Guanidine-II riboswitch aptamer (mini-ykkC): a 49-nucleotide RNA sequence from Klebsiella michiganensis. Rfam describes the family as follows. Simpler in structure and has fewer highly conserved nucleotide positions than the ykkC-yxkD leader. Despite this each of its two stem-loop structures directly bind free guanidine. Therefore, mini-ykkC RNA motif represents a distinct class of guanidine-sensing RNAs. Its crystal structure was also determined. For this family Rfam cites "Identification of 22 candidate structured RNAs in bacteria using the CMfinder comparative genomics pipeline" (Weinberg et al., Nucleic Acids Res, 2007). The match comes from Rfam's covariance-model search (43 bits).

RNA sequence: CCCCGGGGACGACCUCAGGGGAACAUCGAAUUCUUGCGGGACGACCCGC
Numbered sequence: 001c002c003c004c005g006g007g008g009a010c011g012a013c014c015u016c017a018g019g020g021g022a023a024c025a026u027c028g029a030a031u032u033c034u035u036g037c038g039g040g041a042c043g044a045c046c047c048g049c
Base pairs, nucleotide, nucleotide: 001021002020003019004018005016006015007014008013036049037048038047039046040045